This 142-nucleotide sequence from Populus tomentosa belongs to the Rfam family "MIR480 microRNA precursor family". The literature on the family includes a 2005 paper in Plant Cell by Lu et al., "Novel and mechanical stress-responsive MicroRNAs in Populus trichocarpa that are absent from Arabidopsis". Its family is annotated with miRNA-mediated post-transcriptional gene silencing and RISC complex in the Gene Ontology. It scores 99 bits against the family's covariance model.

RNA sequence: UAAUUUAUCUUAGAUAAAUUCUCGUCUAGUUACAACAAAUUCAUAUCUGAUUGUUCAGAAUCAUUCGUUGUCACAAACCUAACUAUAUCAUUGACACUAAAAAAUAAAAAAUAGCUAUUGCGCGAACAAUAAUGUUUUGAGA
Number, nucleotide and partner (000 for none) at each position: 001u000002a000003a000004u140005u139006u000007a137008u000009c134010u000011u000012a000013g000014a130015u129016a000017a000018a000019u125020u000021c000022u000023c122024g121025u120026c000027u117028a116029g115030u114031u113032a000033c000034a000035a000036c000037a000038a000039a000040u000041u000042c000043a000044u000045a000046u000047c000048u000049g000050a000051u000052u000053g000054u000055u000056c000057a000058g000059a000060a000061u000062c000063a000064u000065u000066c000067g000068u000069u000070g000071u000072c000073a000074c000075a000076a000077a000078c000079c000080u000081a000082a000083c000084u000085a000086u000087a000088u000089c000090a000091u000092u000093g000094a000095c000096a000097c000098u000099a000100a000101a000102a000103a000104a000105u000106a000107a000108a000109a000110a000111a000112u000113a031114g030115c029116u028117a027118u000119u000120g025121c024122g023123c000124g000125a019126a000127c000128a000129a015130u014131a000132a000133u000134g009135u000136u000137u007138u000139g005140a004141g000142a000